[Rfam]
RNA: Small nucleolar RNA snoR8a
Organism: Theobroma cacao
RNA sequence: AAGUUAGCGAUGAUUAUAAAAAUAAUUCUUCGUUUGAACUUGCUUAAUUUGGACCUAACAAGCCUCUUAUUACACCCAUAGAAUCUGAACUAC
Numbered sequence: 001a002a003g004u005u006a007g008c009g010a011u012g013a014u015u016a017u018a019a020a021a022a023u024a025a026u027u028c029u030u031c032g033u034u035u036g037a038a039c040u041u042g043c044u045u046a047a048u049u050u051g052g053a054c055c056u057a058a059c060a061a062g063c064c065u066c067u068u069a070u071u072a073c074a075c076c077c078a079u080a081g082a083a084u085c086u087g088a089a090c091u092a093c
Stems, first nucleotide, its partner, number of pairs: 003093002006091002